[Rfam]
RNA sequence: ACGCCCUACGGAGCGCUCAGGUCCGCCGCAUCUCCUGGGUCCGUGGGGUUGGUCGGCGCAGAAACGGGUUCAGAGUGGCCUCCUCAUGUCAUCCGCUUCGCGCCGACCACCAC
Numbered sequence: 001a002c003g004c005c006c007u008a009c010g011g012a013g014c015g016c017u018c019a020g021g022u023c024c025g026c027c028g029c030a031u032c033u034c035c036u037g038g039g040u041c042c043g044u045g046g047g048g049u050u051g052g053u054c055g056g057c058g059c060a061g062a063a064a065c066g067g068g069u070u071c072a073g074a075g076u077g078g079c080c081u082c083c084u085c086a087u088g089u090c091a092u093c094c095g096c097u098u099c100g101c102g103c104c105g106a107c108c109a110c111c112a113c
Stems, first nucleotide, its partner, number of pairs: 003049008016039006051108009061098001
RNA: EcpR1
Organism: Pseudovibrio exalbescens